Rfam assigns this 154-nucleotide RNA sequence from Acinetobacter nectaris to the family "Acinetobacter sRNA 28". The match comes from Rfam's covariance-model search (87 bits). Lineage of the source: Bacteria > Gammaproteobacteria > Moraxellaceae > Acinetobacter > Acinetobacter nectaris. Pairs were carried over by alignment from the consensus structure, which was predicted with RNAfold.

RNA sequence: AUUUAAUCAUUUACCCAAUUUAAGGAGGACAUCAUGCCAUUACUACUACAACUUUAAAUCUUGGCACGAUGUCAGCUCACGGACAAGUGUCAUAUCAACUUGUCCGAGUGCUUUAAAGACCUAGCAUUCGCUAGGUCUUUUUUAUUUGGACAAA
Numbered sequence: 001a002u003u004u005a006a007u008c009a010u011u012u013a014c015c016c017a018a019u020u021u022a023a024g025g026a027g028g029a030c031a032u033c034a035u036g037c038c039a040u041u042a043c044u045a046c047u048a049c050a051a052c053u054u055u056a057a058a059u060c061u062u063g064g065c066a067c068g069a070u071g072u073c074a075g076c077u078c079a080c081g082g083a084c085a086a087g088u089g090u091c092a093u094a095u096c097a098a099c100u101u102g103u104c105c106g107a108g109u110g111c112u113u114u115a116a117a118g119a120c121c122u123a124g125c126a127u128u129c130g131c132u133a134g135g136u137c138u139u140u141u142u143u144a145u146u147u148g149g150a151c152a153a154a
Base pairs, nucleotide, nucleotide: 002116003115006112008110009109010024011023012022013021025078026077027076028073029072030071031070032069033068035066036065037064038063039062080106081105082104083103084102085101086100087099088098117138118137119136120135121134122133123132124131125130142148